[Rfam]
RNA sequence: AUAAGAACAGAGCAGAGAAAAAUCUGCUCUUUUUACGCGGUCAAGUCUUGGGAGGAUGCGAUCCUGGCGCGGUAGUUCGCAGCCGCCGGUAAUAACGGAGCGGAUCGGGCGCGUUUAAUUUGCAAGGCUUCGGCCUUGCAAUUUUUU
Numbered sequence: 001a002u003a004a005g006a007a008c009a010g011a012g013c014a015g016a017g018a019a020a021a022a023u024c025u026g027c028u029c030u031u032u033u034u035a036c037g038c039g040g041u042c043a044a045g046u047c048u049u050g051g052g053a054g055g056a057u058g059c060g061a062u063c064c065u066g067g068c069g070c071g072g073u074a075g076u077u078c079g080c081a082g083c084c085g086c087c088g089g090u091a092a093u094a095a096c097g098g099a100g101c102g103g104a105u106c107g108g109g110c111g112c113g114u115u116u117a118a119u120u121u122g123c124a125a126g127g128c129u130u131c132g133g134c135c136u137u138g139c140a141a142u143u144u145u146u147u
Stems, first nucleotide, its partner, number of pairs: 003147004011028006036113004045057004060106005066084003069080003086098003121140008
Alphaproteobacterial sRNA ar9: a 147-nucleotide sequence from Mesorhizobium sp. J18. The organism belongs to Mesorhizobium, within Bacteria. By type it is a small RNA. The pairing is the family consensus, mapped onto this sequence. On this family, see del Val et al., RNA Biol 2012: "A survey of sRNA families in alpha-proteobacteria".